[Rfam]
RNA sequence: UUAGUAGAUAUUGUGUGUAUCUGCUUAGUGUGAUUUAAUGCGCUUUGUACGAAAGAUUUCGCGAAAUUGAUUAGGGGCAGAUGGGUAGUUGUGAUUCAUAGUUAAUUGAAUAGACUCAACAAUCAUCUUCCCCAUAUUU
Numbered sequence: 001u002u003a004g005u006a007g008a009u010a011u012u013g014u015g016u017g018u019a020u021c022u023g024c025u026u027a028g029u030g031u032g033a034u035u036u037a038a039u040g041c042g043c044u045u046u047g048u049a050c051g052a053a054a055g056a057u058u059u060c061g062c063g064a065a066a067u068u069g070a071u072u073a074g075g076g077g078c079a080g081a082u083g084g085g086u087a088g089u090u091g092u093g094a095u096u097c098a099u100a101g102u103u104a105a106u107u108g109a110a111u112a113g114a115c116u117c118a119a120c121a122a123u124c125a126u127c128u129u130c131c132c133c134a135u136a137u138u139u
Stems, first nucleotide, its partner, number of pairs: 004062002010059001015043006074133004079128006088120004
RNA: small nucleolar RNA snoR135